[Rfam]
RNA: mir-9242 microRNA precursor family
RNA sequence: GGCCUCCCUCUGUGGGGUGAUCGACCGUGGGGCUCCGUGAUCGAUCGCCCAGCAGAGGGAGGCC
Numbered sequence: 001g002g003c004c005u006c007c008c009u010c011u012g013u014g015g016g017g018u019g020a021u022c023g024a025c026c027g028u029g030g031g032g033c034u035c036c037g038u039g040a041u042c043g044a045u046c047g048c049c050c051a052g053c054a055g056a057g058g059g060a061g062g063c064c
Stems, first nucleotide, its partner, number of pairs: 001064013015050010026039005